[Rfam]
RNA sequence: GGCUGACCGGCGCCGAAUCCCGCGCCUGCGGGAACCGGGGAACCACAUCUCUGGGGUGAAUCCAGCCCAACUCGGGCCGGUAGGGCAUCUCCACGUCCGAACCCGUCAGCUAACCCGGUAGGCGAGAUGGAGAGGACGA
Numbered sequence: 001g002g003c004u005g006a007c008c009g010g011c012g013c014c015g016a017a018u019c020c021c022g023c024g025c026c027u028g029c030g031g032g033a034a035c036c037g038g039g040g041a042a043c044c045a046c047a048u049c050u051c052u053g054g055g056g057u058g059a060a061u062c063c064a065g066c067c068c069a070a071c072u073c074g075g076g077c078c079g080g081u082a083g084g085g086c087a088u089c090u091c092c093a094c095g096u097c098c099g100a101a102c103c104c105g106u107c108a109g110c111u112a113a114c115c116c117g118g119u120a121g122g123c124g125a126g127a128u129g130g131a132g133a134g135g136a137c138g139a
Stems, first nucleotide, its partner, number of pairs: 011124004018033005034119006044053002054104003062080002065077001083098004

c-di-AMP riboswitch aptamer (ydaO/yuaA leader): a 139-nucleotide sequence from Nonomuraea montanisoli.
Its family is annotated with cyclic-di-AMP binding and regulation of gene expression in the Gene Ontology.
A search with the family's covariance model found it, with a score of 97 bits.
This family represents a conserved RNA structure found upstream of the ydaO and yuaA genes in Bacillus subtilis and related genes in other bacteria.